[Rfam]
Small nucleolar RNA Z168/Z174: an 81-nucleotide RNA sequence. The base pairs follow the family's consensus structure, which was predicted with PFOLD.
RNA sequence: GGGCCGAUGAUGCAAACCUUGCUCCUACGGUCUAACCUGUGGGGAGGAUUUGUAAAGUAUAUUUCCCAAGAGCUGAGGCCC
Numbered sequence: 001g002g003g004c005c006g007a008u009g010a011u012g013c014a015a016a017c018c019u020u021g022c023u024c025c026u027a028c029g030g031u032c033u034a035a036c037c038u039g040u041g042g043g044g045a046g047g048a049u050u051u052g053u054a055a056a057g058u059a060u061a062u063u064u065c066c067c068a069a070g071a072g073c074u075g076a077g078g079c080c081c
Base pairs, nucleotide, nucleotide: 002080003079004078005077